[Rfam]
RNA sequence: UUUAAAUGCAUCAUUGAGUGCAGCGUUGAUCAGCAUUUAAGAUUUAACGGCGGCUAUGGCGAUCGCCGCUGCCGUUUCUGUUUUCUCAGCCUGCUAAUUGACGUUGCACUCAAUCAUGCUUUUG
Numbered sequence: 001u002u003u004a005a006a007u008g009c010a011u012c013a014u015u016g017a018g019u020g021c022a023g024c025g026u027u028g029a030u031c032a033g034c035a036u037u038u039a040a041g042a043u044u045u046a047a048c049g050g051c052g053g054c055u056a057u058g059g060c061g062a063u064c065g066c067c068g069c070u071g072c073c074g075u076u077u078c079u080g081u082u083u084u085c086u087c088a089g090c091c092u093g094c095u096a097a098u099u100g101a102c103g104u105u106g107c108a109c110u111c112a113a114u115c116a117u118g119c120u121u122u123u124g
Stems, first nucleotide, its partner, number of pairs: 006121001008119004013114016030097001032095004

A member of the RNA family "MIR397 microRNA precursor family" from Ipomoea nil, 124 nucleotides long. Gene Ontology terms of the family: miRNA-mediated post-transcriptional gene silencing and RISC complex. For this family Rfam cites "High throughput approaches reveal splicing of primary microRNA transcripts and tissue specific expression of mature microRNAs in Vitis vinifera" (Mica et al., BMC Genomics, 2009). A search with the family's covariance model found it, with a score of 56 bits.